Rfam assigns this 49-nucleotide RNA sequence from Pseudooceanicola spongiae to the family "Xanthine riboswitch aptamer (NMT1 RNA)".
A search with the family's covariance model found it, with a score of 36 bits.
Rfam links the family to the GO term purine nucleobase binding.
The organism belongs to Pseudooceanicola, within Bacteria.
RNA sequence: CCCAGGAGUAUAAGCCGGCAGCACAUCCGUGCAGGUCAUUGCUCCCCUU
Numbered sequence: 001c002c003c004a005g006g007a008g009u010a011u012a013a014g015c016c017g018g019c020a021g022c023a024c025a026u027c028c029g030u031g032c033a034g035g036u037c038a039u040u041g042c043u044c045c046c047c048u049u
Stems, first nucleotide, its partner, number of pairs: 005045006015034001018036002021032004